RNA sequence: AGACUAUCAGGGCAAACCACUCGGAAGCGUGGGACGCAAAGCCAUGUACCUUACCCCAGAAGGGCAGGUCGACAGGUUGCCAAU
Number, nucleotide and partner (000 for none) at each position: 001a000002g000003a000004c000005u000006a000007u000008c000009a000010g000011g000012g037013c036014a000015a000016a000017c032018c031019a030020c029021u000022c027023g000024g000025a000026a000027g022028c000029g020030u019031g018032g017033g000034a000035c000036g013037c012038a000039a000040a078041g077042c076043c075044a000045u074046g073047u072048a069049c068050c067051u000052u000053a000054c000055c064056c063057c062058a000059g000060a000061a000062g057063g056064g055065c000066a000067g050068g049069u048070c000071g000072a047073c046074a045075g043076g042077u041078u040079g000080c000081c000082a000083a000084u000

Annotation
A member of the RNA family "c-di-GMP-I riboswitch aptamer" from Paludibacterium denitrificans, 84 nucleotides long. Rfam links the family to the GO term cyclic-di-GMP binding. It scores 62 bits against the family's covariance model. Lineage of the source: Bacteria > Pseudomonadota > Betaproteobacteria > Neisseriales > Paludibacterium.